Shown here is a 391-nucleotide RNA from Calocera viscosa, a member of the family "Nuclear RNase P". Lineage of the source: Eukaryota > Fungi > Agaricomycotina > Calocera > Calocera viscosa.
RNA sequence: GCAGGACCGGACGUUCAUGGGACGCCUCGAUCCGAUAUUCUCGAGCGGGAAGGUCUGAGCAUAUGUGUCCUCCUCGAUCGACUCUAGCAGGGUCCGGCGGCAAACCGCCGAGCGACGUACCAGACAUGCAAUCCCGAACUCCUCAGUCCACAUCAACGAUGUGCGAUGGCCCCAAGAUCUCCGGUCGAACGGAAGGAGGGUAGGAGUUGCCCGGAUUUUGGGAAACGUCGCGAGGACUGGGCGACGGUGUCCUGACCCAGUAUUGCAUCGUAUGGUCUCGCAAGGGACCUGCGCGCUCUGCUGGGCCCGUCGCCCUUUGGUGCACUUCGCAGCUUGGGGUUAUGCUCUUCGUGAGCUUCUCAAAACUCGAUUCAGACUAUUCUUGGCCUGC
Numbered sequence: 001g002c003a004g005g006a007c008c009g010g011a012c013g014u015u016c017a018u019g020g021g022a023c024g025c026c027u028c029g030a031u032c033c034g035a036u037a038u039u040c041u042c043g044a045g046c047g048g049g050a051a052g053g054u055c056u057g058a059g060c061a062u063a064u065g066u067g068u069c070c071u072c073c074u075c076g077a078u079c080g081a082c083u084c085u086a087g088c089a090g091g092g093u094c095c096g097g098c099g100g101c102a103a104a105c106c107g108c109c110g111a112g113c114g115a116c117g118u119a120c121c122a123g124a125c126a127u128g129c130a131a132u133c134c135c136g137a138a139c140u141c142c143u144c145a146g147u148c149c150a151c152a153u154c155a156a157c158g159a160u161g162u163g164c165g166a167u168g169g170c171c172c173c174a175a176g177a178u179c180u181c182c183g184g185u186c187g188a189a190c191g192g193a194a195g196g197a198g199g200g201u202a203g204g205a206g207u208u209g210c211c212c213g214g215a216u217u218u219u220g221g222g223a224a225a226c227g228u229c230g231c232g233a234g235g236a237c238u239g240g241g242c243g244a245c246g247g248u249g250u251c252c253u254g255a256c257c258c259a260g261u262a263u264u265g266c267a268u269c270g271u272a273u274g275g276u277c278u279c280g281c282a283a284g285g286g287a288c289c290u291g292c293g294c295g296c297u298c299u300g301c302u303g304g305g306c307c308c309g310u311c312g313c314c315c316u317u318u319g320g321u322g323c324a325c326u327u328c329g330c331a332g333c334u335u336g337g338g339g340u341u342a343u344g345c346u347c348u349u350c351g352u353g354a355g356c357u358u359c360u361c362a363a364a365a366c367u368c369g370a371u372u373c374a375g376a377c378u379a380u381u382c383u384u385g386g387c388c389u390g391c
Stems, first nucleotide, its partner, number of pairs: 001391004010384002015332001018329003055375005067237004080094005095110006112231007130217005334363006
Rfam 15.1 lists 3,848 matches to the family in 1,862 species. It scores 66 bits against the family's covariance model.